[Rfam]
RNA sequence: AUAAUAGUUUAACUCCGAGUUUAUCAUUUCUAAACAACUAUUUUUUUAGAAGCACGAAUGAUAAACCGAUGGGUAAAUUUGGAAACGAAUUUGCCUCCCGCAGGAUUGUAAAUCCAAAAUUGGAAAGGAGAAAUGUUUUAUUGUAA
Number, nucleotide and partner (000 for none) at each position: 001a000002u000003a000004a139005u000006a137007g000008u000009u000010u000011a000012a000013c130014u129015c128016c127017g000018a000019g066020u065021u064022u063023a062024u061025c060026a059027u000028u058029u057030c056031u000032a000033a000034a000035c052036a000037a000038c000039u000040a000041u000042u000043u000044u000045u000046u000047u000048a000049g000050a000051a000052g035053c000054a000055c000056g030057a029058a028059u026060g025061a024062u023063a022064a021065a020066c019067c000068g000069a000070u000071g096072g095073g094074u093075a092076a091077a090078u089079u088080u087081g086082g000083a000084a000085a000086c081087g080088a079089a078090u077091u076092u075093g074094c073095c072096u071097c123098c122099c000100g000101c000102a000103g000104g000105a000106u000107u000108g000109u000110a000111a000112a000113u000114c000115c000116a000117a000118a000119a000120u000121u000122g098123g097124a000125a000126a000127g016128g015129a014130g013131a000132a000133a000134u000135g000136u000137u006138u000139u004140a000141u000142u000143g000144u000145a000146a000